[Rfam]
RNA sequence: CUGUCAGAAUAUAUAUGUCCAUUUUGAAUGGACUAGGUGAUUCACACCAUUAUCUCGGACAGCGGUUCGAUUCCGCUCAGCUCCAUCUAUUCUGGGGCUGCAAUGGCUUCGACGGGGUUCUAGGAGUUUGACUGAAACCUGCUCGGUUAGAGCAAAACCAUAACUGCUAACAAAAUCGUUAGUUUCUCCCGUCAAACAGCACCUGUUGCUGCUUGACCUUAUAAAGGAGAUGGGGUUAGAUCAGCCUUAUCAACCAAAUGAUCCAUUGGGCUUGGAAGAGCCC
Numbered sequence: 001c002u003g004u005c006a007g008a009a010u011a012u013a014u015a016u017g018u019c020c021a022u023u024u025u026g027a028a029u030g031g032a033c034u035a036g037g038u039g040a041u042u043c044a045c046a047c048c049a050u051u052a053u054c055u056c057g058g059a060c061a062g063c064g065g066u067u068c069g070a071u072u073c074c075g076c077u078c079a080g081c082u083c084c085a086u087c088u089a090u091u092c093u094g095g096g097g098c099u100g101c102a103a104u105g106g107c108u109u110c111g112a113c114g115g116g117g118u119u120c121u122a123g124g125a126g127u128u129u130g131a132c133u134g135a136a137a138c139c140u141g142c143u144c145g146g147u148u149a150g151a152g153c154a155a156a157a158c159c160a161u162a163a164c165u166g167c168u169a170a171c172a173a174a175a176u177c178g179u180u181a182g183u184u185u186c187u188c189c190c191g192u193c194a195a196a197c198a199g200c201a202c203c204u205g206u207u208g209c210u211g212c213u214u215g216a217c218c219u220u221a222u223a224a225a226g227g228a229g230a231u232g233g234g235g236u237u238a239g240a241u242c243a244g245c246c247u248u249a250u251c252a253a254c255c256a257a258a259u260g261a262u263c264c265a266u267u268g269g270g271c272u273u274g275g276a277a278g279a280g281c282c283c
Stems, first nucleotide, its partner, number of pairs: 017033007036133003040129001043126001047124002052118006061077005078100007140154005195214002198210004226255002229251008268283006
RNA: Cyanobacteria transfer-messenger RNA
Organism: Prochlorococcus marinus